[Rfam]
RNA sequence: GCAGAUUCACUCUGCACCUGGCUGCAUCUCCAGUCUGGUGCUUUUUCUGUCUGCCAAAGAAACAUUCCAGGAUGCUGUGGCUGCCUCUGCCUAUGGCGGUCAUGCAGCUCUCUGGGGACAUGUGA
Numbered sequence: 001g002c003a004g005a006u007u008c009a010c011u012c013u014g015c016a017c018c019u020g021g022c023u024g025c026a027u028c029u030c031c032a033g034u035c036u037g038g039u040g041c042u043u044u045u046u047c048u049g050u051c052u053g054c055c056a057a058a059g060a061a062a063c064a065u066u067c068c069a070g071g072a073u074g075c076u077g078u079g080g081c082u083g084c085c086u087c088u089g090c091c092u093a094u095g096g097c098g099g100u101c102a103u104g105c106a107g108c109u110c111u112c113u114g115g116g117g118a119c120a121u122g123u124g125a
Stems, first nucleotide, its partner, number of pairs: 001054006014041005020035001022033003066116006074108006082102002085099002